[Rfam]
RNA sequence: GCUUUCCUUGUCUUGGGGUGGACCGGGAGGCUCAAUGAACGACUAGUGAGAGUCUCCCUGCUGACACCGUAUCAACACAUCCGCAUCACCUGAGCGCAUGCGCUCAGGGAAAGGUGCAAUUUUUGGAGCA
Numbered sequence: 001g002c003u004u005u006c007c008u009u010g011u012c013u014u015g016g017g018g019u020g021g022a023c024c025g026g027g028a029g030g031c032u033c034a035a036u037g038a039a040c041g042a043c044u045a046g047u048g049a050g051a052g053u054c055u056c057c058c059u060g061c062u063g064a065c066a067c068c069g070u071a072u073c074a075a076c077a078c079a080u081c082c083g084c085a086u087c088a089c090c091u092g093a094g095c096g097c098a099u100g101c102g103c104u105c106a107g108g109g110a111a112a113g114g115u116g117c118a119a120u121u122u123u124u125g126g127a128g129c130a
Stems, first nucleotide, its partner, number of pairs: 006018004020061001022059001027056007039047002083117005090107006

Shown here is a 130-nucleotide sequence from Poecilia formosa, a member of the family "U4atac minor spliceosomal RNA". The family's RNA type in Rfam is spliceosomal small nuclear RNA. Pairs were carried over by alignment from the consensus structure, which is taken from published work. The match comes from Rfam's covariance-model search (85 bits). On this family, see Lorkovic et al., RNA 2005: "Evolutionary conservation of minor U12-type spliceosome between plants and humans". Rfam describes the family as follows. U4atac is an essential component of the minor U12-type spliceosome complex which is required for removal of the rarer class of eukaryotic introns (AT-AC, U12-type).